RNA sequence: AAAAAAGUGAUGCAAAGGACAAGGGUCUGUUGUUACGGUUUAUAGAGAGGGAAGGACGGUGGAAACUUCCUAACACGAAUAAUGGACUUACCCCCUUUAAACUUCAACUGUGAAAGAUUUUCAAGUAAUGGUUGACGGAACCGACCGUUAUCGGCUUCUUGAGUCGCAAUGGUUUUUUAAACUUUGCGAGAAUCAGGGUGGAACCACGGGUAUUUAAAACUCGUCCCUACU
Numbered sequence: 001a002a003a004a005a006a007g008u009g010a011u012g013c014a015a016a017g018g019a020c021a022a023g024g025g026u027c028u029g030u031u032g033u034u035a036c037g038g039u040u041u042a043u044a045g046a047g048a049g050g051g052a053a054g055g056a057c058g059g060u061g062g063a064a065a066c067u068u069c070c071u072a073a074c075a076c077g078a079a080u081a082a083u084g085g086a087c088u089u090a091c092c093c094c095c096u097u098u099a100a101a102c103u104u105c106a107a108c109u110g111u112g113a114a115a116g117a118u119u120u121u122c123a124a125g126u127a128a129u130g131g132u133u134g135a136c137g138g139a140a141c142c143g144a145c146c147g148u149u150a151u152c153g154g155c156u157u158c159u160u161g162a163g164u165c166g167c168a169a170u171g172g173u174u175u176u177u178u179a180a181a182c183u184u185u186g187c188g189a190g191a192a193u194c195a196g197g198g199u200g201g202a203a204c205c206a207c208g209g210g211u212a213u214u215u216a217a218a219a220c221u222c223g224u225c226c227c228u229a230c231u
Stems, first nucleotide, its partner, number of pairs: 007102002015097004025087006038074003049071006105134007136147003164189006195228004206224005
Dot-bracket structure: ......((......((((......((((((.......(((........((((((...........))))))))).......))))))......))))...))..(((((((................))))))).(((......)))................((((((..............)))))).....((((.......(((((.........)))))))))...